A member of the RNA family "Small nucleolar RNA U109" from Galemys pyrenaicus, 135 nucleotides long. A search with the family's covariance model found it, with a score of 112 bits.
RNA sequence: UUACACAUGGAAAGGUCUACUCCUCAUUUCUUGGGGAGCAGAAAUACACCCAUAACAGGCUACAUUAACAAAGGGGUUCUCAGGGCUGCCAGCCUUACAGUAGAGAUUGAGUGGUAGCAUAUUUUUCCUACGUAG
Dot-bracket structure: ...(...(.......(((.((((...........)))).)))............)...).............((((........((..((((.(((......))).))).)..)).........)))).......
Its family is annotated with nucleolus and RNA processing in the Gene Ontology. The source organism's lineage runs through Eukaryota, Chordata, Dipnotetrapodomorpha, Talpidae and Galemys. The family has 26 seed sequences and 1,405 matches in Rfam 15.1. For this family Rfam cites "A novel experimental approach for systematic identification of box H/ACA snoRNAs from eukaryotes" (Gu et al., Nucleic Acids Res, 2005).